[Rfam]
RNA sequence: CAGCCUGAAAUGAUGACCAUUUAAUUCAUGUCUCUUCUCUGACAUUCUCCUCUGGAGAUGAUUUUUGCCUUAUUGAUCUGAUCAGGCUG
Numbered sequence: 001c002a003g004c005c006u007g008a009a010a011u012g013a014u015g016a017c018c019a020u021u022u023a024a025u026u027c028a029u030g031u032c033u034c035u036u037c038u039c040u041g042a043c044a045u046u047c048u049c050c051u052c053u054g055g056a057g058a059u060g061a062u063u064u065u066u067g068c069c070u071u072a073u074u075g076a077u078c079u080g081a082u083c084a085g086g087c088u089g
Stems, first nucleotide, its partner, number of pairs: 001089005

A member of the RNA family "Small nucleolar RNA SNORD111", 89 nucleotides long. The literature on the family includes a 2002 paper in Mol Cell Biol by Galardi et al., "Purified box C/D snoRNPs are able to reproduce site-specific 2'-O-methylation of target RNA in vitro".